[Rfam]
Annotation:
A member of the RNA family "MIR1520 microRNA precursor family" from Glycine max, 120 nucleotides long. A search with the family's covariance model found it, with a score of 111 bits. The family has 18 seed sequences and 1,934 matches in Rfam 15.1. Its Rfam clan is "MIR1520 microRNA precursor clan".
RNA sequence: UUUUUAUUAGAUGAUGACUGUCACACGUUAUAUUCUGAUUGGUCAAUGAAACUAACAAUGCAUUUUGUCUUUCAUGGAGUUGACAUCCAAUCAGAACAUGACACGUGACAGUUAUCAUCC
Numbered sequence: 001u002u003u004u005u006a007u008u009a010g011a012u013g014a015u016g017a018c019u020g021u022c023a024c025a026c027g028u029u030a031u032a033u034u035c036u037g038a039u040u041g042g043u044c045a046a047u048g049a050a051a052c053u054a055a056c057a058a059u060g061c062a063u064u065u066u067g068u069c070u071u072u073c074a075u076g077g078a079g080u081u082g083a084c085a086u087c088c089a090a091u092c093a094g095a096a097c098a099u100g101a102c103a104c105g106u107g108a109c110a111g112u113u114a115u116c117a118u119c120c
Base pairs, nucleotide, nucleotide: 020109021108022107023106029100030099031098033096034095035094036093038091039090040089041088042087